[Rfam]
RNA sequence: AUAAAUGUUUUCUAAGUGUCUAAUGAUGAGUUUCAUAGGGCAGAUUCUGAGGUGAAAAUUUAGUUCAUCAUUGAUACUCUUUCUAUGGAAUCUGAAGACACUUCAAACCUA
Numbered sequence: 001a002u003a004a005a006u007g008u009u010u011u012c013u014a015a016g017u018g019u020c021u022a023a024u025g026a027u028g029a030g031u032u033u034c035a036u037a038g039g040g041c042a043g044a045u046u047c048u049g050a051g052g053u054g055a056a057a058a059u060u061u062a063g064u065u066c067a068u069c070a071u072u073g074a075u076a077c078u079c080u081u082u083c084u085a086u087g088g089a090a091u092c093u094g095a096a097g098a099c100a101c102u103u104c105a106a107a108c109c110u111a
Stems, first nucleotide, its partner, number of pairs: 014103008030091007037081004043075001046074002049071001051069006
Rfam assigns this 111-nucleotide RNA from Cavia porcellus to the family "Small nucleolar RNA SNORD90". From the family's description: snoRNA HBII-295 belongs to the family of C/D snoRNAs. Rfam links the family to the GO terms nucleolus and RNA processing. Lineage of the source: Eukaryota > Eumetazoa > Craniata > Amniota > Cavia. Rfam classes the family as a C/D-box small nucleolar RNA. For this family Rfam cites "RNomics: an experimental approach that identifies 201 candidates for novel, small, non-messenger RNAs in mouse" (Huttenhofer et al., EMBO J, 2001).